[Rfam]
Background
This 354-nucleotide sequence from Bilophila wadsworthia belongs to the Rfam family "transfer-messenger RNA". Gene Ontology term of the family: RNA catabolic process. The base pairs follow the family's consensus structure, which is taken from published work. The literature on the family includes a 1996 paper in RNA by Williams and Bartel, "Phylogenetic analysis of tmRNA secondary structure". The source organism's lineage runs through Bacteria, Pseudomonadati, Thermodesulfobacteriota, Bilophila and Bilophila wadsworthia.
RNA sequence: GGGGGCGCAUUGGUUUCGACGGGGAUGUUGAAGCCGAAGUGGCAGGCCGAGGCGCCGCUGGCCUCGUUAAAAGCGGCACCAUAGUAAUUGGCAACGAUUACGAAUACGCUUACGCUGCUUAAUUAAGCGGCACACCGAACCGGCUCACGCCCGAUAAGCUGGCAAGGUGUAAAACUAUCGGGCUGGCGUGGCGUUGUGUUUGCCGGGCGACGCGCGAGACUUUACGGUGAACUGGCCGACGGACGCCCUGAUUGGGGGCCAAGCCUGAGGCGAGAUAUGAUACCCAACCUAAGCCUGUAGAUGCUUCGCGUGAAUCUUUCUCGGACGGGGGUUCGAUUCCCCCCGCCUCCACCA
Dot-bracket structure: (((((((............((((((.(.(...(((((((((.((((([[[[[.((((((..]]]]].....))))))................................(...(((((........))))))[[[[...[[[[[[...(((((((.]]]]]]...]]]].......)))))))..(((((.(((....[[......))).))))).............]]....[[[...[[..[[[..(.(((((]]]....]]...]]]...........))))).)...)))))....))))))).))..).).))))))...(((((.......))))))))))))....
It scores 188 bits against the family's covariance model.